[Rfam]
RNA sequence: CAGCAAAAACCAUCGUGAAAAUUGCGCCUUCUUCCCCGAUCGCGUAUACUUUUUUCGUUGACGUAAUACAGUGUGCUUGCGGCUACCAACCGUAAAAACACCGAACAGAAAACCUCGCCGCGGCGGGGUUUUUU
Numbered sequence: 001c002a003g004c005a006a007a008a009a010c011c012a013u014c015g016u017g018a019a020a021a022u023u024g025c026g027c028c029u030u031c032u033u034c035c036c037c038g039a040u041c042g043c044g045u046a047u048a049c050u051u052u053u054u055u056c057g058u059u060g061a062c063g064u065a066a067u068a069c070a071g072u073g074u075g076c077u078u079g080c081g082g083c084u085a086c087c088a089a090c091c092g093u094a095a096a097a098a099c100a101c102c103g104a105a106c107a108g109a110a111a112a113c114c115u116c117g118c119c120g121c122g123g124c125g126g127g128g129u130u131u132u133u134u
Stems, first nucleotide, its partner, number of pairs: 004060003011057001018052003023046005030039002071102001074100002077095006108133011
This 134-nucleotide sequence from Klebsiella michiganensis belongs to the Rfam family "istR Hfq binding RNA". By type it is an antitoxin RNA. For this family Rfam cites "The small RNA IstR inhibits synthesis of an SOS-induced toxic peptide" (Vogel et al., Curr Biol, 2004). The family's consensus secondary structure was predicted with CMfinder.